[Rfam]
RNA sequence: CUGUACUCUACAGUGCAUGUGUCUCCAGUGUGAGUAGGCGACUGGAGAUGCGGCUCUGUU
Numbered sequence: 001c002u003g004u005a006c007u008c009u010a011c012a013g014u015g016c017a018u019g020u021g022u023c024u025c026c027a028g029u030g031u032g033a034g035u036a037g038g039c040g041a042c043u044g045g046a047g048a049u050g051c052g053g054c055u056c057u058g059u060u
Stems, first nucleotide, its partner, number of pairs: 010059004015054002018052012
mir-139 microRNA precursor family: a 60-nucleotide RNA sequence from Colius striatus. NCBI's taxonomy places the organism under Eukaryota, Eumetazoa, Saurischia, Neoaves, Colius. On this family, see Murchison et al., Genome Res 2008: "Conservation of small RNA pathways in platypus". The match comes from Rfam's covariance-model search (68 bits).